[Rfam]
RNA sequence: GCUCUGUGAUGAACCCCAUGCGUGUCAUCUGAGCCUGGCUUCCCUGUCUUCUCAGCCCAGGUAGUGUUCUACUUCCCAGGGCUGUUGUCUGGCCUGGCAGGGGGCUCCUGGGCAAAGGAUCAGUCUUUGUAUUCUGAGAGC
Numbered sequence: 001g002c003u004c005u006g007u008g009a010u011g012a013a014c015c016c017c018a019u020g021c022g023u024g025u026c027a028u029c030u031g032a033g034c035c036u037g038g039c040u041u042c043c044c045u046g047u048c049u050u051c052u053c054a055g056c057c058c059a060g061g062u063a064g065u066g067u068u069c070u071a072c073u074u075c076c077c078a079g080g081g082c083u084g085u086u087g088u089c090u091g092g093c094c095u096g097g098c099a100g101g102g103g104g105c106u107c108c109u110g111g112g113c114a115a116a117g118g119a120u121c122a123g124u125c126u127u128u129g130u131a132u133u134c135u136g137a138g139a140g141c
Stems, first nucleotide, its partner, number of pairs: 001141004042102007
RNA: Small nucleolar RNA SNORD10